[Rfam]
RNA: SAM riboswitch aptamer (S box leader)
RNA sequence: UACUUAUCAAGAAAGGUGGAGGGAAAAGGCCCUUUGAAACCUUAGCAACCCCAAAUUAGGAAGGUGCUAAAUCCAGAUGUAAAAAUCAAGAUAAGAG
Numbered sequence: 001u002a003c004u005u006a007u008c009a010a011g012a013a014a015g016g017u018g019g020a021g022g023g024a025a026a027a028g029g030c031c032c033u034u035u036g037a038a039a040c041c042u043u044a045g046c047a048a049c050c051c052c053a054a055a056u057u058a059g060g061a062a063g064g065u066g067c068u069a070a071a072u073c074c075a076g077a078u079g080u081a082a083a084a085a086u087c088a089a090g091a092u093a094a095g096a097g
Stems, first nucleotide, its partner, number of pairs: 001097001003095006013043005021032003028074002044068004049064002051060002072089001077086002